[Rfam]
RNA sequence: GAGUUAGCGGUGUGUAGCGAGGUUAACCCGUGUGGGGAAGCCGUAGCGAAAGCGAGUCCGAAUAGGGCGAUUCAGUUGCACGCUCUAGACCCGAAGCGAAGUGAUCUAUCCAUGGGCAGGUUGAAGCGCGGGUAAGACCGCGUGGAGGACCGAACCCACUUAGGUUGAAAACUGAGGGGAUGACCUGUGGAUAGGGGUGAAAGGCCAAUCAAACUUCGUGAUAGCUGGUU
Numbered sequence: 001g002a003g004u005u006a007g008c009g010g011u012g013u014g015u016a017g018c019g020a021g022g023u024u025a026a027c028c029c030g031u032g033u034g035g036g037g038a039a040g041c042c043g044u045a046g047c048g049a050a051a052g053c054g055a056g057u058c059c060g061a062a063u064a065g066g067g068c069g070a071u072u073c074a075g076u077u078g079c080a081c082g083c084u085c086u087a088g089a090c091c092c093g094a095a096g097c098g099a100a101g102u103g104a105u106c107u108a109u110c111c112a113u114g115g116g117c118a119g120g121u122u123g124a125a126g127c128g129c130g131g132g133u134a135a136g137a138c139c140g141c142g143u144g145g146a147g148g149a150c151c152g153a154a155c156c157c158a159c160u161u162a163g164g165u166u167g168a169a170a171a172c173u174g175a176g177g178g179g180a181u182g183a184c185c186u187g188u189g190g191a192u193a194g195g196g197g198u199g200a201a202a203g204g205c206c207a208a209u210c211a212a213a214c215u216u217c218g219u220g221a222u223a224g225c226u227g228g229u230u
Stems, first nucleotide, its partner, number of pairs: 005087003009084010021042004027036003046053002056068004090228002093225001097218006106194011117182001119151004126143006155179003159176005196206003
This 230-nucleotide part of an RNA from Nocardioides jishulii belongs to the Rfam family "Bacterial large subunit ribosomal RNA".
It scores 2789 bits against the family's covariance model.